The family of this 110-nucleotide sequence from Rubrobacter xylanophilus is "SAM riboswitch aptamer (S box leader)". For this family Rfam cites "The S box regulon: a new global transcription termination control system for methionine and cysteine biosynthesis genes in gram-positive bacteria" (Grundy and Henkin, Mol Microbiol, 1998). It scores 71 bits against the family's covariance model. NCBI's taxonomy places the organism under Bacteria, Bacillati, Rubrobacteria, Rubrobacteraceae, Rubrobacter xylanophilus. The family's consensus secondary structure is taken from published work.
RNA sequence: CGUACAUCGAGAGAGGCGCGAGGGAACUGGCCCAAAGACCGCCCGGCAACCUGGCUUCUCCGGAGCCAAGGUGCCAAUGCCAGCCCGCCGAGAGACGGGGACGAUGUAGC
Numbered sequence: 001c002g003u004a005c006a007u008c009g010a011g012a013g014a015g016g017c018g019c020g021a022g023g024g025a026a027c028u029g030g031c032c033c034a035a036a037g038a039c040c041g042c043c044c045g046g047c048a049a050c051c052u053g054g055c056u057u058c059u060c061c062g063g064a065g066c067c068a069a070g071g072u073g074c075c076a077a078u079g080c081c082a083g084c085c086c087g088c089c090g091a092g093a094g095a096c097g098g099g100g101a102c103g104a105u106g107u108a109g110c
Base pairs, nucleotide, nucleotide: 003108004107005106006105007104008103013044015043016042017041018040022033023032024031027083028082029081030080045075046074047073048072050071051070053067054066055065056064079102084099085098086097087096089094
Dot-bracket structure: ..((((((....(.((((...(((..[[[[)))......)))))((((.((.((((.......))))..))))))...(]]]]((((.(....).))))..)))))))..